The record is a 67-nucleotide sequence from Pseudoflavitalea sp. G-6-1-2, which matches "Fluoride riboswitch aptamer (crcB RNA motif)" in Rfam. The family's consensus secondary structure is taken from published work. A search with the family's covariance model found it, with a score of 48 bits. Rfam links the family to the GO terms response to fluoride and positive regulation of gene expression.

RNA sequence: UAUUGCCAAGGAAAUGGUGUCUUCCUAUUUAACCGUUCUUCCCGGAACUGAUGGCGCCUACAAAUAC
Numbered sequence: 001u002a003u004u005g006c007c008a009a010g011g012a013a014a015u016g017g018u019g020u021c022u023u024c025c026u027a028u029u030u031a032a033c034c035g036u037u038c039u040u041c042c043c044g045g046a047a048c049u050g051a052u053g054g055c056g057c058c059u060a061c062a063a064a065u066a067c
Base pairs, nucleotide, nucleotide: 010025011024012023013022016058017057018056019055020054021053035048036047037046038045